Shown here is a 195-nucleotide RNA from Gordonia amarae, a member of the family "Actinobacteria sRNA Ms_IGR-5".

[Rfam]
RNA sequence: ACACGAGGAAGGAGGUGAUCCGAAUUGAUUUCCAAUCGGACAAGUGAGGUGGCCAUCCGCUGAGGCGGAUCCGACCACACCUUGAGGUGUAGGACCCUGGUUCGCCGAGGCGAAUCCCAGCUGGUCACCCGGCCUCCGUACCCCGACCGUCCGUCGGCCCGGCUUCCCCGUGAAGCGGUACGGGGGCCGUUUGUA
Numbered sequence: 001a002c003a004c005g006a007g008g009a010a011g012g013a014g015g016u017g018a019u020c021c022g023a024a025u026u027g028a029u030u031u032c033c034a035a036u037c038g039g040a041c042a043a044g045u046g047a048g049g050u051g052g053c054c055a056u057c058c059g060c061u062g063a064g065g066c067g068g069a070u071c072c073g074a075c076c077a078c079a080c081c082u083u084g085a086g087g088u089g090u091a092g093g094a095c096c097c098u099g100g101u102u103c104g105c106c107g108a109g110g111c112g113a114a115u116c117c118c119a120g121c122u123g124g125u126c127a128c129c130c131g132g133c134c135u136c137c138g139u140a141c142c143c144c145g146a147c148c149g150u151c152c153g154u155c156g157g158c159c160c161g162g163c164u165u166c167c168c169c170g171u172g173a174a175g176c177g178g179u180a181c182g183g184g185g186g187c188c189g190u191u192u193g194u195a
Base pairs, nucleotide, nucleotide: 014057015056016055017054019052058112059111060110061109064106065105066104067103068102069101070100071099130189131188132187133186134185135184136183137182138181139180140179141178142177
By type it is a small RNA. A search with the family's covariance model found it, with a score of 86 bits.